The family of this 144-nucleotide RNA from Cannabis sativa is "small nucleolar RNA snoR135". The family has 6 seed sequences and 837 matches in Rfam 15.1. It scores 122 bits against the family's covariance model. The organism belongs to Cannabis, within Eukaryota.
RNA sequence: AAAGCAGGAAUUGUUUGUAUCGGUGUUGUGCUAAAUUCUGUGCAUAUUUUUCGAAAGAGUUCACUGCAAAAUUAAUUUGGGGAAAGUGGGCAGUUGUGUUUUAUUUUCUUUGGUUGAAAUUCAAUAAUCAUUUUCCCCAUAUUU
Numbered sequence: 001a002a003a004g005c006a007g008g009a010a011u012u013g014u015u016u017g018u019a020u021c022g023g024u025g026u027u028g029u030g031c032u033a034a035a036u037u038c039u040g041u042g043c044a045u046a047u048u049u050u051u052c053g054a055a056a057g058a059g060u061u062c063a064c065u066g067c068a069a070a071a072u073u074a075a076u077u078u079g080g081g082g083a084a085a086g087u088g089g090g091c092a093g094u095u096g097u098g099u100u101u102u103a104u105u106u107u108c109u110u111u112g113g114u115u116g117a118a119a120u121u122c123a124a125u126a127a128u129c130a131u132u133u134u135c136c137c138c139a140u141a142u143u144u
Base pairs, nucleotide, nucleotide: 004067005066006065007064010061016044017043018042019041020040079138080137081136082135083134084133085132086131087130088129089128093125094124095123096122